c-di-AMP riboswitch aptamer (ydaO/yuaA leader): a 161-nucleotide sequence from Goekera deserti. NCBI's taxonomy places the organism under Bacteria, Bacillati, Geodermatophilales, Geodermatophilaceae, Goekera. A reference for the family is Barrick et al. (2004), "New RNA motifs suggest an expanded scope for riboswitches in bacterial genetic control", Proc Natl Acad Sci U S A.
[Rfam]
RNA sequence: GACCGGACACCGCCGAACCGGGUGCCGCAGACAGCGGCGACCGGACCGGGGACCCAUCGCAGUACUGGGGUGGAGCACGACACGGACCUCGUCCGCUCGUGCCGGGCACGUUCCCUGCCCGAACCCGUCAGCUAACUCGGUAGGCGGUACACGGAGAACAG
Numbered sequence: 001g002a003c004c005g006g007a008c009a010c011c012g013c014c015g016a017a018c019c020g021g022g023u024g025c026c027g028c029a030g031a032c033a034g035c036g037g038c039g040a041c042c043g044g045a046c047c048g049g050g051g052a053c054c055c056a057u058c059g060c061a062g063u064a065c066u067g068g069g070g071u072g073g074a075g076c077a078c079g080a081c082a083c084g085g086a087c088c089u090c091g092u093c094c095g096c097u098c099g100u101g102c103c104g105g106g107c108a109c110g111u112u113c114c115c116u117g118c119c120c121g122a123a124c125c126c127g128u129c130a131g132c133u134a135a136c137u138c139g140g141u142a143g144g145c146g147g148u149a150c151a152c153g154g155a156g157a158a159c160a161g
Stems, first nucleotide, its partner, number of pairs: 011146004018044003045141006055067002068126003076101004104120004